[Rfam]
RNA sequence: UUUUCAUGAUGAGGAAAGAAAUCGAUUGCGUCUGAUGUACUGGAUGUGAAAUUCCUCCUACUCAUUCUGA
Numbered sequence: 001u002u003u004u005c006a007u008g009a010u011g012a013g014g015a016a017a018g019a020a021a022u023c024g025a026u027u028g029c030g031u032c033u034g035a036u037g038u039a040c041u042g043g044a045u046g047u048g049a050a051a052u053u054c055c056u057c058c059u060a061c062u063c064a065u066u067c068u069g070a
Stems, first nucleotide, its partner, number of pairs: 006065004029048001032043001